[Rfam]
RNA sequence: GUGGGUUUUCUCGUGGUUUCGCCAUCAUGAAUGGUGAGGAAGUUCUAUCCAUGCGACUGGAACUGAGGCACGUGAGUGCUGCUGGGAAACCGGUAGGUCAGGAAAAGAAAAGAGCGCCUUUCCACAAAUGCGAUGAUGAGGUCAGCCUCUGAGGUCGUGGAAAGAAGCGGUGCAACAUAUCCUCCCUCAGCAUGCAAGACCAAACGAUGGCCCGUGAGCCCAGUCCGAGGCCAGUGGUAGGUCGCUUAGCCCAAUACCACGAACCCGUUGUGCAUUGGAUAGCAUGUCCAAUGAUGCAAUGGGGCAAUUACAAAAGAUAGGCUAUAGGAAACCCAC
Numbered sequence: 001g002u003g004g005g006u007u008u009u010c011u012c013g014u015g016g017u018u019u020c021g022c023c024a025u026c027a028u029g030a031a032u033g034g035u036g037a038g039g040a041a042g043u044u045c046u047a048u049c050c051a052u053g054c055g056a057c058u059g060g061a062a063c064u065g066a067g068g069c070a071c072g073u074g075a076g077u078g079c080u081g082c083u084g085g086g087a088a089a090c091c092g093g094u095a096g097g098u099c100a101g102g103a104a105a106a107g108a109a110a111a112g113a114g115c116g117c118c119u120u121u122c123c124a125c126a127a128a129u130g131c132g133a134u135g136a137u138g139a140g141g142u143c144a145g146c147c148u149c150u151g152a153g154g155u156c157g158u159g160g161a162a163a164g165a166a167g168c169g170g171u172g173c174a175a176c177a178u179a180u181c182c183u184c185c186c187u188c189a190g191c192a193u194g195c196a197a198g199a200c201c202a203a204a205c206g207a208u209g210g211c212c213c214g215u216g217a218g219c220c221c222a223g224u225c226c227g228a229g230g231c232c233a234g235u236g237g238u239a240g241g242u243c244g245c246u247u248a249g250c251c252c253a254a255u256a257c258c259a260c261g262a263a264c265c266c267g268u269u270g271u272g273c274a275u276u277g278g279a280u281a282g283c284a285u286g287u288c289c290a291a292u293g294a295u296g297c298a299a300u301g302g303g304g305c306a307a308u309u310a311c312a313a314a315a316g317a318u319a320g321g322c323u324a325u326a327g328g329a330a331a332c333c334c335a336c
Stems, first nucleotide, its partner, number of pairs: 001336003005332007012261006020036005041323003045320005050194004055225005063190005068079004083093001085091001096185002101182002115169003118164008138149002198243004208233005
Dot-bracket structure: (((.(((((((((((((..(((((.......)))))....[[[.[[[[[((((.[[[[[...(((((((((....))))...(.(.....).)..((...((............(((((((((((............((........)).......))))))))..)))...........)).)))))))))))...((((......(((((........]]]]]...)))))......))))............))))))......................................................]]]]]]]]..))))))).)))

Description: The record is a 336-nucleotide RNA sequence from a Candidatus Methanofastidiosia archaeon, which matches "Archaeal RNase P" in Rfam. Rfam classes the family as a ribozyme. Clan: RNaseP clan. The match comes from Rfam's covariance-model search (126 bits). On this family, see Frank and Pace, Annu Rev Biochem 1998: "Ribonuclease P: unity and diversity in a tRNA processing ribozyme". About the family: Ribonuclease P (RNase P) is a ubiquitous endoribonuclease, found in archaea, bacteria and eukarya as well as chloroplasts and mitochondria. Its best characterised activity is the generation of mature 5'-ends of tRNAs by cleaving the 5'-leader elements of precursor-tRNAs.